This 172-nucleotide sequence belongs to the Rfam family "Group II catalytic intron D1-D4-3". Its family is annotated with Group II intron splicing in the Gene Ontology. The base pairs follow the family's consensus structure. It is one of the family's seed sequences. Rfam describes the family as follows. Group II introns are found in rRNA, tRNA and mRNA of organelles in fungi, plants and protists, and also in mRNA in bacteria.
RNA sequence: UCCACUGCGAGGUGGAAUCUGAAAGAAGCUGGCGGCAAACAUCUGACCUAACGUACAGAAACUUCAUAUAAGGCAUUUGACCAUGGAUGAGAUUGCCAGACAAAUCAAAGUCCCAUAGCUUUUCGGAAUGGUUGGUGUACAUGACGUGGGUAUAAGAUGGCAAGAAAUAGCC
Numbered sequence: 001u002c003c004a005c006u007g008c009g010a011g012g013u014g015g016a017a018u019c020u021g022a023a024a025g026a027a028g029c030u031g032g033c034g035g036c037a038a039a040c041a042u043c044u045g046a047c048c049u050a051a052c053g054u055a056c057a058g059a060a061a062c063u064u065c066a067u068a069u070a071a072g073g074c075a076u077u078u079g080a081c082c083a084u085g086g087a088u089g090a091g092a093u094u095g096c097c098a099g100a101c102a103a104a105u106c107a108a109a110g111u112c113c114c115a116u117a118g119c120u121u122u123u124c125g126g127a128a129u130g131g132u133u134g135g136u137g138u139a140c141a142u143g144a145c146g147u148g149g150g151u152a153u154a155a156g157a158u159g160g161c162a163a164g165a166a167a168u169a170g171c172c
Stems, first nucleotide, its partner, number of pairs: 001016006028172001030170001032168001036164001040159005046151005062146001064144004073138003077135007085113004091106004